[Rfam]
RNA sequence: AGCCGCAUAAUGUGGCGGACUUAUGCUGUUUAACCCACAGCGUACCGGAUAGAACCCGGAUGGGACUACUUUUUAUAGGAGAAAACAAAUG
Numbered sequence: 001a002g003c004c005g006c007a008u009a010a011u012g013u014g015g016c017g018g019a020c021u022u023a024u025g026c027u028g029u030u031u032a033a034c035c036c037a038c039a040g041c042g043u044a045c046c047g048g049a050u051a052g053a054a055c056c057c058g059g060a061u062g063g064g065a066c067u068a069c070u071u072u073u074u075a076u077a078g079g080a081g082a083a084a085a086c087a088a089a090u091g
Base pairs, nucleotide, nucleotide: 002016003015004014005013006012022044023043024042025041026040027039028038045059046058047057048056

Shown here is a 91-nucleotide RNA, a member of the family "freshwater-2 RNA". It is annotated as a cis-regulatory element.